[Rfam]
RNA sequence: CCCCGGACUUGCGUCCGGGGCUAUUGCCUGUCGUCGCAUGCGCGACU
Numbered sequence: 001c002c003c004c005g006g007a008c009u010u011g012c013g014u015c016c017g018g019g020g021c022u023a024u025u026g027c028c029u030g031u032c033g034u035c036g037c038a039u040g041c042g043c044g045a046c047u
Stems, first nucleotide, its partner, number of pairs: 001020008033046005
Dot-bracket structure: ((((((((....))))))))............(((((....))))).